[Rfam]
Nucleotides: 143
Stems, first nucleotide, its partner, number of pairs: 003062006013054003019048002023042004028037001083138005098131001100129001104127003109122002112119001
Number, partner (000 for none) and nucleotide at each position: 001000a002000c003062c004061c005060c006059c007058u008057g009000g010000u011000a012000a013054u014053g015052g016000g017000u018000g019048a020047a021000g022000a023042g024041a025040u026039a027000c028037c029000c030000c031000a032000u033000u034000g035000g036000u037028g038000a039026u040025g041024u042023u043000g044000c045000u046000g047020u048019u049000g050000u051000g052015u053014c054013a055000g056000u057008c058007a059006g060005g061004g062003g063000c064000a065000g066000a067000g068000c069000a070000g071000a072000u073000g074000a075000c076000a077000g078000u079000c080000c081000u082000a083138u084137g085136u086135u087134c088000a089000u090000c091000c092000u093000a094000g095000c096000u097000u098131g099000a100129u101000g102000c103000c104127u105126g106125g107000g108000u109122c110121a111000g112119u113000g114000g115000c116000c117000a118000a119112a120000c121110u122109g123000u124000u125106u126105c127104a128000u129100g130000c131098c132000u133000a134087g135086g136085g137084c138083a139000c140000a141000c142000u143000g
A member of the RNA family "Small nucleolar RNA SNORA48" from Castor canadensis, 143 nucleotides long. The family's consensus secondary structure was predicted with RNAalifold. Clan: SNORA48 clan. Rfam classes the family as an H/ACA-box small nucleolar RNA. The match comes from Rfam's covariance-model search (56 bits). Rfam describes the family as follows. The snoRNA ACA 48 has been identified to guide pseudouridylation of the residue U3797 in the 28S rRNA subunit.